RNA sequence: AGAGGUCACGAGUUUGAGGCCAUGACAGAAAUGUUCACUUUGUGACCCUGUCAGAUUCCAGUAAAUCUGUGAAUUCCAGU
Numbered sequence: 001a002g003a004g005g006u007c008a009c010g011a012g013u014u015u016g017a018g019g020c021c022a023u024g025a026c027a028g029a030a031a032u033g034u035u036c037a038c039u040u041u042g043u044g045a046c047c048c049u050g051u052c053a054g055a056u057u058c059c060a061g062u063a064a065a066u067c068u069g070u071g072a073a074u075u076c077c078a079g080u
Base pairs, nucleotide, nucleotide: 016048018047019046021044024080028076029075030074031043032042033041052069053068054067055066056065057064
Annotation
A member of the RNA family "Mammalian CPEB3 ribozyme" from Crocodylus porosus, 80 nucleotides long.